Annotation:
A member of the RNA family "Group II catalytic intron D1-D4-2" from Micromonospora sp. Llam0, 124 nucleotides long. It scores 74 bits against the family's covariance model. For this family Rfam cites "The ins and outs of group II introns" (Bonen and Vogel, Trends Genet, 2001). Rfam describes the family as follows. Group II introns are found in rRNA, tRNA and mRNA of organelles in fungi, plants and protists, and also in mRNA in bacteria. Gene Ontology term of the family: Group II intron splicing.

RNA sequence: GGAGGUUGCUUGGCCCUCCGGUGCCGGCUUGCGGAAGCACGCUUCAAACCACCACGAGAGGCGUUGGCUGAAGACCGUCGUCCUGAGCGUGAUUGGAAAGGGCGCGGCCGGGAUCGCGUCAGGG
Numbered sequence: 001g002g003a004g005g006u007u008g009c010u011u012g013g014c015c016c017u018c019c020g021g022u023g024c025c026g027g028c029u030u031g032c033g034g035a036a037g038c039a040c041g042c043u044u045c046a047a048a049c050c051a052c053c054a055c056g057a058g059a060g061g062c063g064u065u066g067g068c069u070g071a072a073g074a075c076c077g078u079c080g081u082c083c084u085g086a087g088c089g090u091g092a093u094u095g096g097a098a099a100g101g102g103c104g105c106g107g108c109c110g111g112g113a114u115c116g117c118g119u120c121a122g123g124g
Stems, first nucleotide, its partner, number of pairs: 001019005020045002023042002027038004049124002052096002054093001057090001058084001061081003065077003101120006